[Rfam]
The family of this 331-nucleotide sequence from Pseudothermotoga hypogea is "Bacterial RNase P class A". A search with the family's covariance model found it, with a score of 294 bits. The base pairs follow the family's consensus structure, which is taken from published work. Gene Ontology terms of the family: dimeric ribonuclease P complex, tRNA processing and ribonuclease P activity. The organism belongs to Pseudothermotoga hypogea, within Bacteria.

RNA sequence: GGAGAGGGAUGGGUGGUCGCGGGCCUGAUUGGCUCGAGGAAAGUCCGGACUCCACAGGGCAGGGUGCUGGGUAAUACCCAGGAGGAGCGAUCCUCGGAAAGGGCCACAGAAACUUCAAACCGCCCGAAGAGGGCAAGGGUGAAAAGGUGAGGUAAGAGCUCACCAGCAUCGGGGUGACCCGAUGGCUCGGUAACCCCCACCCGGAGCAAGGCCGAGCAGGGGUGGGUGGCCCGCCCAUAACCCCGGGUAGGCCGCUUGAGGAGGGCGGAAACGCUCUCCCCAGAUAGAUGACCACCCUCGACAGAAUCCGGCUUACAGUCCCUCUCCGUGA
Numbered sequence: 001g002g003a004g005a006g007g008g009a010u011g012g013g014u015g016g017u018c019g020c021g022g023g024c025c026u027g028a029u030u031g032g033c034u035c036g037a038g039g040a041a042a043g044u045c046c047g048g049a050c051u052c053c054a055c056a057g058g059g060c061a062g063g064g065u066g067c068u069g070g071g072u073a074a075u076a077c078c079c080a081g082g083a084g085g086a087g088c089g090a091u092c093c094u095c096g097g098a099a100a101g102g103g104c105c106a107c108a109g110a111a112a113c114u115u116c117a118a119a120c121c122g123c124c125c126g127a128a129g130a131g132g133g134c135a136a137g138g139g140u141g142a143a144a145a146g147g148u149g150a151g152g153u154a155a156g157a158g159c160u161c162a163c164c165a166g167c168a169u170c171g172g173g174g175u176g177a178c179c180c181g182a183u184g185g186c187u188c189g190g191u192a193a194c195c196c197c198c199a200c201c202c203g204g205a206g207c208a209a210g211g212c213c214g215a216g217c218a219g220g221g222g223u224g225g226g227u228g229g230c231c232c233g234c235c236c237a238u239a240a241c242c243c244c245g246g247g248u249a250g251g252c253c254g255c256u257u258g259a260g261g262a263g264g265g266c267g268g269a270a271a272c273g274c275u276c277u278c279c280c281c282a283g284a285u286a287g288a289u290g291a292c293c294a295c296c297c298u299c300g301a302c303a304g305a306a307u308c309c310g311g312c313u314u315a316c317a318g319u320c321c322c323u324c325u326c327c328g329u330g331a
Stems, first nucleotide, its partner, number of pairs: 001327010011316001012296007020036006041314003045311005050206004057232004062202005067081005082095005096197002101195002103191003120138002122134004146164006166186001167184007210253004220244003223237005260279008